[Rfam]
Shown here is an 80-nucleotide RNA sequence from Methylocystis bryophila, a member of the family "chrB-a RNA". The base pairs follow the family's consensus structure, which is taken from published work.

RNA sequence: UCCAUGGGGAAGCGGUCUCCCCUUUAGGCGACAUGCCCAAGCAUCGCGUCCAACCCAUUCCGUGGGGACGCUGGUGCAUG
Numbered sequence: 001u002c003c004a005u006g007g008g009g010a011a012g013c014g015g016u017c018u019c020c021c022c023u024u025u026a027g028g029c030g031a032c033a034u035g036c037c038c039a040a041g042c043a044u045c046g047c048g049u050c051c052a053a054c055c056c057a058u059u060c061c062g063u064g065g066g067g068a069c070g071c072u073g074g075u076g077c078a079u080g
Base pairs, nucleotide, nucleotide: 006022007021008020009019010018046071047070048069049068050067051066